This 78-nucleotide RNA from Gasterosteus aculeatus belongs to the Rfam family "mir-130 microRNA precursor family". For this family Rfam cites "Identification of tissue-specific microRNAs from mouse" (Lagos-Quintana et al., Curr Biol, 2002). A search with the family's covariance model found it, with a score of 54 bits.
RNA sequence: UUGUCCAAAGCCCUUUUUCUGUUGUACUACUGUGAAAUCAGAUGAGCAGUGCAAUAUUAAAAGGGCAUUGGCUGACAA
Numbered sequence: 001u002u003g004u005c006c007a008a009a010g011c012c013c014u015u016u017u018u019c020u021g022u023u024g025u026a027c028u029a030c031u032g033u034g035a036a037a038u039c040a041g042a043u044g045a046g047c048a049g050u051g052c053a054a055u056a057u058u059a060a061a062a063g064g065g066c067a068u069u070g071g072c073u074g075a076c077a078a
Stems, first nucleotide, its partner, number of pairs: 001078003005071004010066008020056009